[Rfam]
RNA: Potassium channel RNA editing signal
Organism: Kryptolebias marmoratus
RNA sequence: CUUGGCUACGGAGACAUGUACCCCAAGACGACCUUUGGUAUGCUAGUUGGAGCCCUGUGUGCCCUGGCAGGUGUGCUGACCAUCGCCAUGCCCGUCCCUGUGAUUGUCAACAAC
Numbered sequence: 001c002u003u004g005g006c007u008a009c010g011g012a013g014a015c016a017u018g019u020a021c022c023c024c025a026a027g028a029c030g031a032c033c034u035u036u037g038g039u040a041u042g043c044u045a046g047u048u049g050g051a052g053c054c055c056u057g058u059g060u061g062c063c064c065u066g067g068c069a070g071g072u073g074u075g076c077u078g079a080c081c082a083u084c085g086c087c088a089u090g091c092c093c094g095u096c097c098c099u100g101u102g103a104u105u106g107u108c109a110a111c112a113a114c
Base pairs, nucleotide, nucleotide: 002113004111008107009106010105011104014101015100016099018097020095021094037077038076039075040074049063050062